RNA sequence: UGUGAGAGUGAUGAGUUGCACACUGGUGGAGCCAUAGUAUCAGGUGAUACAGGCACCACUCAGUACUACCCUGGUGACAAAAUCAAGUGCACAGGGGCCAUCUGACUCACA
Number, nucleotide and partner (000 for none) at each position: 001u000002g000003u000004g110005a000006g108007a107008g106009u000010g000011a000012u000013g000014a000015g000016u000017u000018g000019c000020a000021c000022a064023c063024u062025g061026g059027u058028g057029g056030a000031g054032c053033c052034a000035u000036a000037g050038u049039a048040u047041c046042a000043g000044g000045u000046g041047a040048u039049a038050c037051a000052g033053g032054c031055a000056c029057c028058a027059c026060u000061c025062a024063g023064u022065a000066c000067u000068a000069c000070c000071c000072u000073g000074g000075u000076g000077a000078c000079a000080a000081a000082a000083u000084c000085a000086a000087g000088u000089g000090c000091a000092c000093a000094g000095g000096g000097g000098c000099c000100a000101u000102c000103u000104g000105a000106c008107u007108c006109a000110c004111a000
Shown here is a 111-nucleotide sequence, a member of the family "Small nucleolar RNA SNORD67". It is annotated as a C/D-box small nucleolar RNA. Pairs were carried over by alignment from the consensus structure. About the family: snoRNA HBII-166 belongs to the C/D family of snoRNAs. Its family is annotated with nucleolus and RNA processing in the Gene Ontology. On this family, see Huttenhofer et al., EMBO J 2001: "RNomics: an experimental approach that identifies 201 candidates for novel, small, non-messenger RNAs in mouse".